Shown here is a 394-nucleotide part of an RNA from Funneliformis mosseae, a member of the family "Eukaryotic large subunit ribosomal RNA". Pairs were carried over by alignment from the consensus structure, which is taken from published work.
[Rfam]
RNA sequence: GUUGUUGCAAUAGUAAUUCAGCCUAGUACGAGAGGAACUGCUGAUUCGGAUAAUUGGUACUGCACCUACCCGAUAGGGUAAUGGUGCUAAGCUAUCAUCCGCUGGAUAAUGGCUGAACGCCUCUAAGUCAGAAGCCACACUAGAACGCGACGACAAUUUUUUUACCCAAGUUUAAGUUGAAUAAAAAUAAAGCCCUUUGGGCUUCAAGAUCAUAUCAUUGGGUUUGGAUGUUGAGACGGAAGAGUUUUAACAUCUUGCCCUUGGAUUGUAAUAUUUAAAAUAUUGGGUUAAAUAAAUCUUUUGCAGACGACUUAAUUAAGAACGGGGGUAUUAUAAGCAGUAGAGUAACAUUGUGUUUACGAUCUGCUGAGAUAACCCUUCGUUUUAGAUUUAA
Number, nucleotide and partner (000 for none) at each position: 001g154002u153003u152004g151005u150006u149007g148008c147009a000010a000011u142012a141013g140014u139015a000016a046017u000018u044019c043020a042021g041022c040023c000024u000025a000026g000027u000028a000029c000030g000031a000032g000033a000034g000035g000036a000037a000038c000039u000040g022041c021042u020043g019044a018045u000046u016047c101048g100049g099050a098051u097052a000053a000054u000055u094056g093057g092058u000059a000060c000061u000062g087063c086064a085065c084066c000067u080068a079069c078070c077071c076072g000073a000074u000075a000076g071077g070078g069079u068080a067081a000082u000083g000084g065085u064086g063087c062088u000089a000090a000091g000092c057093u056094a055095u000096c000097a051098u050099c049100c048101g047102c000103u137104g136105g135106a000107u000108a000109a000110u130111g129112g128113c127114u126115g000116a000117a000118c000119g000120c000121c000122u000123c000124u000125a000126a114127g113128u112129c111130a110131g000132a000133a000134g000135c105136c104137a103138c000139a014140c013141u012142a011143g000144a000145a000146c000147g008148c007149g006150a005151c004152g003153a002154c001155a000156a000157u000158u000159u000160u000161u000162u290163u000164a288165c287166c286167c285168a284169a000170g000171u000172u000173u000174a000175a000176g000177u000178u000179g000180a000181a000182u000183a000184a000185a000186a000187a000188u000189a000190a000191a000192g000193c000194c000195c000196u000197u000198u000199g000200g000201g000202c000203u000204u000205c000206a000207a000208g000209a000210u000211c000212a000213u000214a000215u000216c000217a000218u000219u000220g000221g000222g000223u000224u000225u000226g000227g000228a000229u000230g000231u000232u000233g000234a000235g000236a000237c000238g000239g000240a000241a000242g000243a000244g000245u000246u000247u000248u000249a000250a000251c000252a000253u000254c000255u000256u000257g000258c000259c000260c000261u000262u000263g000264g000265a000266u000267u000268g000269u000270a000271a000272u000273a000274u000275u000276u000277a000278a000279a000280a000281u000282a000283u000284u168285g167286g166287g165288u164289u000290a162291a000292a000293u000294a392295a391296a390297u389298c388299u315300u314301u000302u000303g311304c000305a000306g000307a000308c000309g000310a000311c303312u000313u000314a300315a299316u000317u000318a000319a000320g385321a384322a383323c382324g381325g380326g378327g377328g376329u000330a373331u372332u000333a000334u000335a000336a000337g367338c366339a365340g364341u000342a363343g000344a000345g360346u359347a358348a357349c000350a000351u000352u000353g000354u000355g000356u000357u348358u347359a346360c345361g000362a000363u342364c340365u339366g338367c337368u000369g000370a000371g000372a331373u330374a000375a000376c328377c327378c326379u000380u325381c324382g323383u322384u321385u320386u000387a000388g298389a297390u296391u295392u294393a000394a000